[Rfam]
RNA sequence: UGCCGAAUGAGUUUAAGCUCAAAAUAUCCUGCAAAUAUACAUUCACAAAAUGGGGUGGAAUAAAAAGGGGAAAAAAAAAAAAAAAAAAAGGAAAAGGAAAGAAAUGUAAAAAGUUUCUGAACUUUUUUUUUUUUUUUUUUUUUUUUUCUUCUUUUCAUUCCACGUACCCCCCCCAUGUUGUGUAAUUUUUUCAAAACAGGAAGGAAGGUCUGAGAUGCUGCAAAUAAAGAAGACACAAAAGGGAAAAGAACCAAAUAUGUGGAUACAAAGUUUGUCAAAAAUUUUGUCCCCUCAUGUUUGGUACUUUUCCCGUUUUGUUCCAUUCCUUGCGAAUUCUUCUUUAAACUCUUUUUGAGAAAAAAAAUAUUGAAAAAAUAUUAAUUAGCUACCAGAAAUGCCAAUCAUACAUUUUUGGUCUGUCCCUUUCUCCUUCUUUUUUUGGGAGGGGGAAAGGGGCAAACCAAGUGUAUGAUUUUGAAAAAGCUAAUAAGCAAGUAUACGCAAUUGAGUUCGAUUUUUGAGAUUUUUCGAUCGUCCCAAUUGUGUCCCUUUAUCUCUCCAUGUACGUGUGUGUGGGGGAAGAGGGGGUUUCUCCCUACUCCCCCCACCUCCUUGGAAGAGAUAAUAAAAAGGGUCAACACGUUGGGCACCUCCGAGAAAUAACCUAAUUCAGACUACUCGUAAAUUCAUUCGCACCA
Numbered sequence: 001u002g003c004c005g006a007a008u009g010a011g012u013u014u015a016a017g018c019u020c021a022a023a024a025u026a027u028c029c030u031g032c033a034a035a036u037a038u039a040c041a042u043u044c045a046c047a048a049a050a051u052g053g054g055g056u057g058g059a060a061u062a063a064a065a066a067g068g069g070g071a072a073a074a075a076a077a078a079a080a081a082a083a084a085a086a087a088a089a090g091g092a093a094a095a096g097g098a099a100a101g102a103a104a105u106g107u108a109a110a111a112a113g114u115u116u117c118u119g120a121a122c123u124u125u126u127u128u129u130u131u132u133u134u135u136u137u138u139u140u141u142u143u144u145u146u147u148c149u150u151c152u153u154u155u156c157a158u159u160c161c162a163c164g165u166a167c168c169c170c171c172c173c174c175a176u177g178u179u180g181u182g183u184a185a186u187u188u189u190u191u192c193a194a195a196a197c198a199g200g201a202a203g204g205a206a207g208g209u210c211u212g213a214g215a216u217g218c219u220g221c222a223a224a225u226a227a228a229g230a231a232g233a234c235a236c237a238a239a240a241g242g243g244a245a246a247a248g249a250a251c252c253a254a255a256u257a258u259g260u261g262g263a264u265a266c267a268a269a270g271u272u273u274g275u276c277a278a279a280a281a282u283u284u285u286g287u288c289c290c291c292u293c294a295u296g297u298u299u300g301g302u303a304c305u306u307u308u309c310c311c312g313u314u315u316u317g318u319u320c321c322a323u324u325c326c327u328u329g330c331g332a333a334u335u336c337u338u339c340u341u342u343a344a345a346c347u348c349u350u351u352u353u354g355a356g357a358a359a360a361a362a363a364a365u366a367u368u369g370a371a372a373a374a375a376u377a378u379u380a381a382u383u384a385g386c387u388a389c390c391a392g393a394a395a396u397g398c399c400a401a402u403c404a405u406a407c408a409u410u411u412u413u414g415g416u417c418u419g420u421c422c423c424u425u426u427c428u429c430c431u432u433c434u435u436u437u438u439u440u441g442g443g444a445g446g447g448g449g450a451a452a453g454g455g456g457c458a459a460a461c462c463a464a465g466u467g468u469a470u471g472a473u474u475u476u477g478a479a480a481a482a483g484c485u486a487a488u489a490a491g492c493a494a495g496u497a498u499a500c501g502c503a504a505u506u507g508a509g510u511u512c513g514a515u516u517u518u519u520g521a522g523a524u525u526u527u528u529c530g531a532u533c534g535u536c537c538c539a540a541u542u543g544u545g546u547c548c549c550u551u552u553a554u555c556u557c558u559c560c561a562u563g564u565a566c567g568u569g570u571g572u573g574u575g576g577g578g579g580a581a582g583a584g585g586g587g588g589u590u591u592c593u594c595c596c597u598a599c600u601c602c603c604c605c606c607a608c609c610u611c612c613u614u615g616g617a618a619g620a621g622a623u624a625a626u627a628a629a630a631a632g633g634g635u636c637a638a639c640a641c642g643u644u645g646g647g648c649a650c651c652u653c654c655g656a657g658a659a660a661u662a663a664c665c666u667a668a669u670u671c672a673g674a675c676u677a678c679u680c681g682u683a684a685a686u687u688c689a690u691u692c693g694c695a696c697c698a
Stems, first nucleotide, its partner, number of pairs: 004693012018522007027201005042184001044182005206676002210673005215498005220492002329334001349362005378490003382487006403471007412464005418458018523661007
RNA: Plasmodium RNase_P
Organism: Plasmodium vivax